[Rfam]
RNA sequence: GGUGACCGGCCGGACAUCCGUGUGCCCGGCCCGCAAGUGGAGGCUCCGCUCUCCCACCUGAUCGACCCCAGGGUCGGCAGGUCACCGGUCCUUUCGCGCCCCGCGAUCUGCCGCGGUGGUGCUCCAGGUCUGUGUGGAGCCCCGCCUGUGCGUCGCCCGGGGCGUUUUUU
Numbered sequence: 001g002g003u004g005a006c007c008g009g010c011c012g013g014a015c016a017u018c019c020g021u022g023u024g025c026c027c028g029g030c031c032c033g034c035a036a037g038u039g040g041a042g043g044c045u046c047c048g049c050u051c052u053c054c055c056a057c058c059u060g061a062u063c064g065a066c067c068c069c070a071g072g073g074u075c076g077g078c079a080g081g082u083c084a085c086c087g088g089u090c091c092u093u094u095c096g097c098g099c100c101c102c103g104c105g106a107u108c109u110g111c112c113g114c115g116g117u118g119g120u121g122c123u124c125c126a127g128g129u130c131u132g133u134g135u136g137g138a139g140c141c142c143c144g145c146c147u148g149u150g151c152g153u154c155g156c157c158c159g160g161g162g163c164g165u166u167u168u169u170u
Base pairs, nucleotide, nucleotide: 004090005089006088007087008086009085012027013026028083029082030081031080034060035059037057038056039055040054041052042051062077063076064075065074066073067072098163099162100161101160102159103158104155105154106153112150113149114148115146116145117144118143119142121140122139123138124137125136
Dot-bracket structure: ...((((((..((............))((((..((.((((((........)).)))).)).((((((....))))))..)))).)))))).......(((((((((.....((((((((.(((((..........))))).))))).)))..)))..)))))).......
Background:
This 170-nucleotide RNA from Streptomyces sp. PT12 belongs to the Rfam family "Streptomyces RNA 1601". Taxonomically the source falls in Streptomyces (Bacteria, Actinomycetota, Kitasatosporales, Streptomycetaceae). Identified by deep sequencing of transcriptome at the end of exponential growth phase. Appears longer on northern blot than sequencing transcript. Streptomyces specific. By type it is a small RNA. On this family, see Vockenhuber et al., RNA Biol 2011: "Deep sequencing-based identification of small non-coding RNAs in Streptomyces coelicolor".